RNA sequence: CCAGUUGGCUGGGCAGCCGCGCUUUACCAAUGCCGAAAGGCGGUAGGGUGAGGAAAGUCCGGGCUCCACGGAAACACGGUGCCGGAUAACGUCCGGCGAGGGCGACCUCAGGGAAAGUGCCACAGAAAGCAAACCGCCUGUCAUGACAGGUAAGGGUGAAAGGGUGGGGUAAGAGCCCACCGCAUCUCCGGCAACGGAAAUGGCACGGUAAACCCCACCGGGAGCAAGACCGAAUAGGGAUGACGCGGUAGGCCGAAAGGCCUUCCGGCUGGUUUCCAGGCCAGUCAUCCGGGUGGGUUGCGUGAGGCAGCGUGCGAACGCUGUCCCAGAGGAAUGGCUGCCACGUUCCGGUUCACGCCGGAGCCAUACAGAACCCGGCUUACAGGCCAACUGGCGAU
Numbered sequence: 001c002c003a004g005u006u007g008g009c010u011g012g013g014c015a016g017c018c019g020c021g022c023u024u025u026a027c028c029a030a031u032g033c034c035g036a037a038a039g040g041c042g043g044u045a046g047g048g049u050g051a052g053g054a055a056a057g058u059c060c061g062g063g064c065u066c067c068a069c070g071g072a073a074a075c076a077c078g079g080u081g082c083c084g085g086a087u088a089a090c091g092u093c094c095g096g097c098g099a100g101g102g103c104g105a106c107c108u109c110a111g112g113g114a115a116a117g118u119g120c121c122a123c124a125g126a127a128a129g130c131a132a133a134c135c136g137c138c139u140g141u142c143a144u145g146a147c148a149g150g151u152a153a154g155g156g157u158g159a160a161a162g163g164g165u166g167g168g169g170u171a172a173g174a175g176c177c178c179a180c181c182g183c184a185u186c187u188c189c190g191g192c193a194a195c196g197g198a199a200a201u202g203g204c205a206c207g208g209u210a211a212a213c214c215c216c217a218c219c220g221g222g223a224g225c226a227a228g229a230c231c232g233a234a235u236a237g238g239g240a241u242g243a244c245g246c247g248g249u250a251g252g253c254c255g256a257a258a259g260g261c262c263u264u265c266c267g268g269c270u271g272g273u274u275u276c277c278a279g280g281c282c283a284g285u286c287a288u289c290c291g292g293g294u295g296g297g298u299u300g301c302g303u304g305a306g307g308c309a310g311c312g313u314g315c316g317a318a319c320g321c322u323g324u325c326c327c328a329g330a331g332g333a334a335u336g337g338c339u340g341c342c343a344c345g346u347u348c349c350g351g352u353u354c355a356c357g358c359c360g361g362a363g364c365c366a367u368a369c370a371g372a373a374c375c376c377g378g379c380u381u382a383c384a385g386g387c388c389a390a391c392u393g394g395c396g397a398u
Base pairs, nucleotide, nucleotide: 001394002393003392004391005390006389007388008387009386010385011383012342013341014340015339016338017337018336020050021049022048023047024046025045026044027043028042055381056380057379059378060377061376062375063374064224065223066222067221077220078219079218080217081216082096083095084094085093086092097111098109099108100107101106112215113214117213118212119209120208121207134155135154136151137150138149139148140147141146163181164180165179166178167177168176182204183202184201185200187198188197189196190195228299229298230297231296238290239289240288241287242286243285270283271282272281273280306325307324308323309322310321311320312319313318
Dot-bracket structure: ((((((((((((((((((.(((((((((.............)))))))))....[[[.[[[[[((((.........((((((((((.....)))))(((((....)))).)((...(((((............((((((((....))))))..)).......((((((.......))))))((((.((((....)))).))).)..)))..)))))))))))))...((((......((((((..........................((((......)))).)))))).....))))......((((((((....))))))))..........)))))))...............................]]]]]]]].).))))))))))....
Notes: Bacterial RNase P class A: a 398-nucleotide sequence from Rhizobium johnstonii. It is one of the family's seed sequences. By type it is a ribozyme. NCBI's taxonomy places the organism under Bacteria, Pseudomonadota, Alphaproteobacteria, Rhizobiaceae, Rhizobium johnstonii. Ribonuclease P (RNase P) is a ubiquitous endoribonuclease, found in archaea, bacteria and eukarya as well as chloroplasts and mitochondria.